[Rfam]
RNA sequence: ACGUACAGGAAGUACGCUCCGGUUCCUCCGCUCCGUCCGCCUAGCCUGACACCCGCUCGCUACGGCCGAUACGUUGUCAACC
Numbered sequence: 001a002c003g004u005a006c007a008g009g010a011a012g013u014a015c016g017c018u019c020c021g022g023u024u025c026c027u028c029c030g031c032u033c034c035g036u037c038c039g040c041c042u043a044g045c046c047u048g049a050c051a052c053c054c055g056c057u058c059g060c061u062a063c064g065g066c067c068g069a070u071a072c073g074u075u076g077u078c079a080a081c082c
Base pairs, nucleotide, nucleotide: 002016003015004014005013006012020035021034022033025030047079048078049077050076051075
RNA: Xanthomonas sRNA sX9
Organism: Mitsuaria sp. PDC51